[Rfam]
RNA sequence: AAGAAAAAAACCCUGCAGUUUCCUGCAGGGUCCUUCUAUAUUCUUAUUUCUAAGAAUAGAAGGCAAAGGGAGAGGAGAAACCGGAGGAAGAACUUAUGGGGAAACGUAAGUCUUCUCCGCGG
Numbered sequence: 001a002a003g004a005a006a007a008a009a010a011c012c013c014u015g016c017a018g019u020u021u022c023c024u025g026c027a028g029g030g031u032c033c034u035u036c037u038a039u040a041u042u043c044u045u046a047u048u049u050c051u052a053a054g055a056a057u058a059g060a061a062g063g064c065a066a067a068g069g070g071a072g073a074g075g076a077g078a079a080a081c082c083g084g085a086g087g088a089a090g091a092a093c094u095u096a097u098g099g100g101g102a103a104a105c106g107u108a109a110g111u112c113u114u115c116u117c118c119g120c121g122g
Base pairs, nucleotide, nucleotide: 011030012029013028014027015026016025017024018023031070032069033068034067035066040057041056042055043054044053045052082119083118084117085116087115088114089113090112092111093110094109095108096107
Record summary
Shown here is a 122-nucleotide sequence from Bacillus sp. V3-13, a member of the family "ylbH leader". It is annotated as a cis-regulatory leader. A reference for the family is Barrick et al. (2004), "New RNA motifs suggest an expanded scope for riboswitches in bacterial genetic control", Proc Natl Acad Sci U S A. It scores 118 bits against the family's covariance model. About the family: This family is a putative regulatory RNA structure that is found upstream of the ylbH gene in B. subtilis and related low GC Gram-positive bacteria. The base pairs follow the family's consensus structure.